[Rfam]
A member of the RNA family "Qrr RNA" from Vibrio sp. V28_P6S34P95, 110 nucleotides long.
RNA sequence: UGACCCUUACUAAAGCCGAGGGUCACCUAGCCAACUGACGUUGUUAGUGAAUAGAAAUUUGUUCACACAUAAUAUAAGCCAAUCGACCUAUUGCGAUUGGCUAUUUUUUU
Numbered sequence: 001u002g003a004c005c006c007u008u009a010c011u012a013a014a015g016c017c018g019a020g021g022g023u024c025a026c027c028u029a030g031c032c033a034a035c036u037g038a039c040g041u042u043g044u045u046a047g048u049g050a051a052u053a054g055a056a057a058u059u060u061g062u063u064c065a066c067a068c069a070u071a072a073u074a075u076a077a078g079c080c081a082a083u084c085g086a087c088c089u090a091u092u093g094c095g096a097u098u099g100g101c102u103a104u105u106u107u108u109u110u
Stems, first nucleotide, its partner, number of pairs: 001025006041077004047066007079100007
The family's RNA type in Rfam is small RNA. A search with the family's covariance model found it, with a score of 108 bits. Rfam describes the family as follows. This family represents a set of small RNAs (the Qrr RNAs) that are thought to be involved in the regulation of quorum sensing in Vibrio species. It is believed that these RNAs, guided by a protein, Hfq, can mediate the destabilisation of the quorum-sensing master regulators LuxR/HapR mRNAs.